[Rfam]
RNA sequence: GGGCCCGUGGCCUAGCCUGGAUAGGGCGCCGGCCUUCUAAGCCGGAGACCCGGGGUUCGAAUCCCCGCGGGCCCG
Numbered sequence: 001g002g003g004c005c006c007g008u009g010g011c012c013u014a015g016c017c018u019g020g021a022u023a024g025g026g027c028g029c030c031g032g033c034c035u036u037c038u039a040a041g042c043c044g045g046a047g048a049c050c051c052g053g054g055g056u057u058c059g060a061a062u063c064c065c066c067g068c069g070g071g072c073c074c075g
Base pairs, nucleotide, nucleotide: 001074002073003072004071005070006069007068010027011026012025013024029045030044031043032042033041051067052066053065054064055063
The record is a 75-nucleotide RNA from Staphylothermus marinus, which matches "tRNA" in Rfam. NCBI's taxonomy places the organism under Archaea, Thermoproteati, Thermoprotei, Desulfurococcales, Staphylothermus marinus. By type it is a transfer RNA. Rfam describes the family as follows. Transfer RNA (tRNA) molecules are approximately 80 nucleotides in length. Rfam links the family to the GO term triplet codon-amino acid adaptor activity.